A member of the RNA family "tRNA" from Thiopseudomonas alkaliphila, 82 nucleotides long. Its Rfam clan is "tRNA clan". The source organism's lineage runs through Bacteria, Pseudomonadota, Gammaproteobacteria, Pseudomonadales and Thiopseudomonas. The family's RNA type in Rfam is transfer RNA.
RNA sequence: GCGGACGUGGUGAAAUUGGUAGACACACCAGAUUUAGGUUCUGGCGCCGCGAGGUGUGAGAGUUCGAGUCUCUCCGUCCGCA
Numbered sequence: 001g002c003g004g005a006c007g008u009g010g011u012g013a014a015a016u017u018g019g020u021a022g023a024c025a026c027a028c029c030a031g032a033u034u035u036a037g038g039u040u041c042u043g044g045c046g047c048c049g050c051g052a053g054g055u056g057u058g059a060g061a062g063u064u065c066g067a068g069u070c071u072c073u074c075c076g077u078c079c080g081c082a
Stems, first nucleotide, its partner, number of pairs: 001081007010026003028044005058074005